[Rfam]
RNA sequence: AUGUCCUGCUCGUGAUCGUCUUCUCAACCUUCACGGGGCAGGCGGCACAAGGAUGGGCUCCCCCAAGGACGUGACUUGUGGGAGCCCUUC
Numbered sequence: 001a002u003g004u005c006c007u008g009c010u011c012g013u014g015a016u017c018g019u020c021u022u023c024u025c026a027a028c029c030u031u032c033a034c035g036g037g038g039c040a041g042g043c044g045g046c047a048c049a050a051g052g053a054u055g056g057g058c059u060c061c062c063c064c065a066a067g068g069a070c071g072u073g074a075c076u077u078g079u080g081g082g083a084g085c086c087c088u089u090c
Stems, first nucleotide, its partner, number of pairs: 002044002005042007012034004018028002052090002055087008064078004
The record is a 90-nucleotide RNA from Streptomyces spongiae, which matches "sodF sRNA" in Rfam. The source organism's lineage runs through Bacteria, Actinomycetota, Actinomycetes, Streptomycetaceae and Streptomyces. The literature on the family includes a 2014 paper in Nucleic Acids Res by Kim et al., "Inverse regulation of Fe- and Ni-containing SOD genes by a Fur family regulator Nur through small RNA processed from 3'UTR of the sodF mRNA". The base pairs follow the family's consensus structure. The family has 6 seed sequences and 336 matches in Rfam 15.1.